Shown here is a 399-nucleotide sequence from Thermanaeromonas toyohensis, a member of the family "Bacterial RNase P class A".
It is annotated as a ribozyme.
A search with the family's covariance model found it, with a score of 319 bits.
[Rfam]
RNA sequence: UGAGUAAACUGGAUGGUCGCGGGAGAAGAAUCUCUCCUGAGGAAAGUCCGAGCUCCACAGGGCAGGGUGCUGGGUAACACCCAGUGGGGGCGACCCCAAGGAAAGUGCCACAGAAACAGACCGCCCGGCCUUAUAGGGGCGCGGAGGAUAGUCCUGCCAAGGCAGGCGAAGGCUCCGGCCCUACAUUACGCCGGGCAAGGGUGGAAAGGUGAGGUAAGAGCUCACCAGCGGUUAGGUGACUAACCGGCUAGGUAAACCCCACCCGGAGCAAGACCGAAUAGGGGGACAAUGGAGUGGCCCGCUCCGUCCCCGGGUAAGGUCGCUGGAGGUACUAGGCAACUGGUACCCUAGAUAGAUGACCAUCCUCGACAGAACUCGGCUUACAGGUUUGCUCAAGGG
Numbered sequence: 001u002g003a004g005u006a007a008a009c010u011g012g013a014u015g016g017u018c019g020c021g022g023g024a025g026a027a028g029a030a031u032c033u034c035u036c037c038u039g040a041g042g043a044a045a046g047u048c049c050g051a052g053c054u055c056c057a058c059a060g061g062g063c064a065g066g067g068u069g070c071u072g073g074g075u076a077a078c079a080c081c082c083a084g085u086g087g088g089g090g091c092g093a094c095c096c097c098a099a100g101g102a103a104a105g106u107g108c109c110a111c112a113g114a115a116a117c118a119g120a121c122c123g124c125c126c127g128g129c130c131u132u133a134u135a136g137g138g139g140c141g142c143g144g145a146g147g148a149u150a151g152u153c154c155u156g157c158c159a160a161g162g163c164a165g166g167c168g169a170a171g172g173c174u175c176c177g178g179c180c181c182u183a184c185a186u187u188a189c190g191c192c193g194g195g196c197a198a199g200g201g202u203g204g205a206a207a208g209g210u211g212a213g214g215u216a217a218g219a220g221c222u223c224a225c226c227a228g229c230g231g232u233u234a235g236g237u238g239a240c241u242a243a244c245c246g247g248c249u250a251g252g253u254a255a256a257c258c259c260c261a262c263c264c265g266g267a268g269c270a271a272g273a274c275c276g277a278a279u280a281g282g283g284g285g286a287c288a289a290u291g292g293a294g295u296g297g298c299c300c301g302c303u304c305c306g307u308c309c310c311c312g313g314g315u316a317a318g319g320u321c322g323c324u325g326g327a328g329g330u331a332c333u334a335g336g337c338a339a340c341u342g343g344u345a346c347c348c349u350a351g352a353u354a355g356a357u358g359a360c361c362a363u364c365c366u367c368g369a370c371a372g373a374a375c376u377c378g379g380c381u382u383a384c385a386g387g388u389u390u391g392c393u394c395a396a397g398g399g
Stems, first nucleotide, its partner, number of pairs: 001395010011384001012364007020039007044382003048379005053268004060300004065264005070084005085099001086097004100259002105257002107253003121200002123196007131188001208226006228248001229246007272321004282311006291305005328347008